Shown here is a 166-nucleotide sequence from an Alicyclobacillaceae bacterium, a member of the family "M-box riboswitch aptamer (ykoK leader)".

[Rfam]
RNA sequence: AAAAGUCCUCGUUAGGCGAGGCGUCUAUGCGAAUACAUGCCACUGCCCGGAAACGUGGAAACACGCCAAUGGGUCACCAGGUACUGCCGGCUUAAGGCUUUACUUAAUGUGGCUGGGUUUGAUGCCCUAUGUCGUAUAGUGCCAAAGCUCAACUAGGGGGAUGCGU
Numbered sequence: 001a002a003a004a005g006u007c008c009u010c011g012u013u014a015g016g017c018g019a020g021g022c023g024u025c026u027a028u029g030c031g032a033a034u035a036c037a038u039g040c041c042a043c044u045g046c047c048c049g050g051a052a053a054c055g056u057g058g059a060a061a062c063a064c065g066c067c068a069a070u071g072g073g074u075c076a077c078c079a080g081g082u083a084c085u086g087c088c089g090g091c092u093u094a095a096g097g098c099u100u101u102a103c104u105u106a107a108u109g110u111g112g113c114u115g116g117g118u119u120u121g122a123u124g125c126c127c128u129a130u131g132u133c134g135u136a137u138a139g140u141g142c143c144a145a146a147g148c149u150c151a152a153c154u155a156g157g158g159g160g161a162u163g164c165g166u
Base pairs, nucleotide, nucleotide: 005162006161007160008159009158010157011153012152013095015149016148017147020143021142022141025139026138027137028136029135030134031133032132039113040112041111042110043109045074046073047072048071049070054065055064056063057062080104081103082102083101086098087097088096115127116126117125
Taxonomically the source falls in Alicyclobacillaceae (Bacteria, Bacillati, Bacillota, Caryophanales).